[Rfam]
Nucleotides: 102
Base pairs, nucleotide, nucleotide: 018088019087020086021085022084023083024082025081031047032046033045034044035043058078059077060076061075062074063073064072
Number, partner (000 for none) and nucleotide at each position: 001000a002000u003000u004000g005000a006000a007000u008000g009000a010000c011000c012000g013000a014000a015000u016000u017000u018088c019087c020086u021085u022084c023083g024082u025081a026000u027000a028000a029000a030000c031047u032046c033045g034044a035043u036000a037000a038000u039000a040000u041000g042000g043035a044034u045033c046032g047031a048000a049000a050000g051000u052000u053000u054000c055000u056000a057000c058078c059077a060076a061075a062074u063073c064072a065000c066000c067000c068000u069000a070000a071000a072064u073063g074062a075061u076060u077059u078058g079000a080000c081025u082024a083023u084022g085021a086020a087019g088018g089000c090000a091000g092000a093000c094000u095000u096000u097000u098000u099000c100000a101000g102000g
Rfam assigns this 102-nucleotide RNA sequence from Mesobacillus zeae to the family "Purine riboswitch aptamer". The source organism's lineage runs through Bacteria, Bacillota, Caryophanales, Bacillaceae and Mesobacillus. It scores 84 bits against the family's covariance model. Pairs were carried over by alignment from the consensus structure, which is taken from published work.